[Rfam]
Overview
A member of the RNA family "U1 spliceosomal RNA" from Jatropha curcas, 161 nucleotides long. The family is grouped with related families in Rfam's "U1 clan". Rfam classes the family as a spliceosomal small nuclear RNA. Pairs were carried over by alignment from the consensus structure, which is taken from published work. U1 is a small nuclear RNA (snRNA) component of the spliceosome (involved in pre-mRNA splicing). Its 5' end forms complementary base pairs with the 5' splice junction, thus defining the 5' donor site of an intron. There are significant differences in sequence and secondary structure between metazoan and yeast U1 snRNAs, the latter being much longer (568 nucleotides as compared to 164 nucleotides in human).
RNA sequence: AUACUUACCUGGACGGGAUCAAUGGGCGAUCAAGUAGGCCUAUGGUCUAGAUUAGUGACCUCCAUUGCACUUAGGAGGGUGCCGGUCUAAGGUCUCCCCAAGUUGGGAGAGCCUACGUCAUAAUUUGUGGAAGUGGGGGCCUACGUUCGCGCGGCCCCUGU
Numbered sequence: 001a002u003a004c005u006u007a008c009c010u011g012g013a014c015g016g017g018a019u020c021a022a023u024g025g026g027c028g029a030u031c032a033a034g035u036a037g038g039c040c041u042a043u044g045g046u047c048u049a050g051a052u053u054a055g056u057g058a059c060c061u062c063c064a065u066u067g068c069a070c071u072u073a074g075g076a077g078g079g080u081g082c083c084g085g086u087c088u089a090a091g092g093u094c095u096c097c098c099c100a101a102g103u104u105g106g107g108a109g110a111g112c113c114u115a116c117g118u119c120a121u122a123a124u125u126u127g128u129g130g131a132a133g134u135g136g137g138g139g140c141c142u143a144c145g146u147u148c149g150c151g152c153g154g155c156c157c158c159u160g161u
Stems, first nucleotide, its partner, number of pairs: 012119004016048006023042005049088003053085001055082003059078005090114003093110003097106002134160005142153001144151002